Description: A member of the RNA family "Small nucleolar RNA SNORD27" from Clavispora lusitaniae, 74 nucleotides long. The pairing is the family consensus, mapped onto this sequence. The match comes from Rfam's covariance-model search (58 bits). Rfam links the family to the GO terms RNA processing and nucleolus. A reference for the family is Tycowski et al. (1996), "A mammalian gene with introns instead of exons generating stable RNA products", Nature. The organism belongs to Clavispora lusitaniae, within Eukaryota.

[Rfam]
RNA sequence: GCUAAAAGAUGAAUUGAAAUUAAAAGACAAGCAUAUGUCUGAUUCUAAGGAAGAUACAUUUCAUGUCUGAUAGC
Numbered sequence: 001g002c003u004a005a006a007a008g009a010u011g012a013a014u015u016g017a018a019a020u021u022a023a024a025a026g027a028c029a030a031g032c033a034u035a036u037g038u039c040u041g042a043u044u045c046u047a048a049g050g051a052a053g054a055u056a057c058a059u060u061u062c063a064u065g066u067c068u069g070a071u072a073g074c
Base pairs, nucleotide, nucleotide: 001074002073003072004071